[Rfam]
RNA sequence: UACUACCAAACCCUAUCUCCACCUCCACGUGGUGAUCGCUGGGAGUUCUUUCUUAAUGAAAAACUGCAAAGGAUGAAGG
Numbered sequence: 001u002a003c004u005a006c007c008a009a010a011c012c013c014u015a016u017c018u019c020c021a022c023c024u025c026c027a028c029g030u031g032g033u034g035a036u037c038g039c040u041g042g043g044a045g046u047u048c049u050u051u052c053u054u055a056a057u058g059a060a061a062a063a064c065u066g067c068a069a070a071g072g073a074u075g076a077a078g079g
Base pairs, nucleotide, nucleotide: 012079013078014077016075018073019072020071021033022032023031044065045064046063047062049060050059052058
Rfam assigns this 79-nucleotide RNA sequence from Hermetia illucens to the family "drz-agam-1 ribozyme". A reference for the family is Webb et al. (2009), "Widespread occurrence of self-cleaving ribozymes", Science. The base pairs follow the family's consensus structure, which is taken from published work. Taxonomically the source falls in Hermetia (Eukaryota, Protostomia, Insecta, Dicondylia). It scores 42 bits against the family's covariance model.